[Rfam]
RNA sequence: UGACACUACUAGGGGUGCCUAUGCAGGCUGAGAGAAAAACAUGUCGUUUUUUAACCCUUUGUACCUGAUCCGGUUCAUACUGGCGUAGGAAAGUAGGAAGUACAGCUU
Numbered sequence: 001u002g003a004c005a006c007u008a009c010u011a012g013g014g015g016u017g018c019c020u021a022u023g024c025a026g027g028c029u030g031a032g033a034g035a036a037a038a039a040c041a042u043g044u045c046g047u048u049u050u051u052u053a054a055c056c057c058u059u060u061g062u063a064c065c066u067g068a069u070c071c072g073g074u075u076c077a078u079a080c081u082g083g084c085g086u087a088g089g090a091a092a093g094u095a096g097g098a099a100g101u102a103c104a105g106c107u108u
Base pairs, nucleotide, nucleotide: 006096007095008094009093010092011058012057013056014055017028018027019026020025035051036050037049038048039047064089065088066087067086070083071082072081073080
The family of this 108-nucleotide sequence from Heyndrickxia ginsengihumi is "TPP riboswitch aptamer (THI element)". The match comes from Rfam's covariance-model search (79 bits). The family's consensus secondary structure is taken from published work.